[Rfam]
RNA: DUF805 RNA
RNA sequence: AAACAGUGGAGACCAGCGACCACUUUAAAAGCGGGGUGACACUGAAAUGCCAUAACAGUAGGGGAAAU
Numbered sequence: 001a002a003a004c005a006g007u008g009g010a011g012a013c014c015a016g017c018g019a020c021c022a023c024u025u026u027a028a029a030a031g032c033g034g035g036g037u038g039a040c041a042c043u044g045a046a047a048u049g050c051c052a053u054a055a056c057a058g059u060a061g062g063g064g065a066a067a068u
Stems, first nucleotide, its partner, number of pairs: 006023004035051003042062002